[Rfam]
RNA: Group II catalytic intron D1-D4-7
Organism: Desulfolithobacter dissulfuricans
RNA sequence: CCUGGCGUGUCCCCGCCGGUAUCCUAGGGAGGCGUGCUACCGUUGCGUCGAUGACGGGGUGCGAAGCCCUCCUGACAACGUACCGAAAUGGGAGGAAGCCGCUAGGCGGAACCCCUUUUCCGGGCAUCCCACCCGGUUAAGGGC
Numbered sequence: 001c002c003u004g005g006c007g008u009g010u011c012c013c014c015g016c017c018g019g020u021a022u023c024c025u026a027g028g029g030a031g032g033c034g035u036g037c038u039a040c041c042g043u044u045g046c047g048u049c050g051a052u053g054a055c056g057g058g059g060u061g062c063g064a065a066g067c068c069c070u071c072c073u074g075a076c077a078a079c080g081u082a083c084c085g086a087a088a089u090g091g092g093a094g095g096a097a098g099c100c101g102c103u104a105g106g107c108g109g110a111a112c113c114c115c116u117u118u119u120c121c122g123g124g125c126a127u128c129c130c131a132c133c134c135g136g137u138u139a140a141g142g143g144c
Stems, first nucleotide, its partner, number of pairs: 002019006028072005033063006040057006090115003099106002120136005